RNA sequence: AUCCCGGGCGUGGUGGUCCGGGGUUUCUCCCUGAUGGACUGGCCGCGCCUCGUGCGCGGCCAUUUUU
Numbered sequence: 001a002u003c004c005c006g007g008g009c010g011u012g013g014u015g016g017u018c019c020g021g022g023g024u025u026u027c028u029c030c031c032u033g034a035u036g037g038a039c040u041g042g043c044c045g046c047g048c049c050u051c052g053u054g055c056g057c058g059g060c061c062a063u064u065u066u067u
Stems, first nucleotide, its partner, number of pairs: 002023007041061008

Source information:
Rfam assigns this 67-nucleotide RNA from Palleronia salina to the family "Singlet oxygen resistance RNA X". Its family is annotated with response to photooxidative stress in the Gene Ontology. The organism belongs to Palleronia, within Bacteria. About the family: SorX (RSs2461)like SorY is a singlet oxygen induced sRNA that counteracts oxidative stress by targeting mRNA for a transporter in Rhodobacter.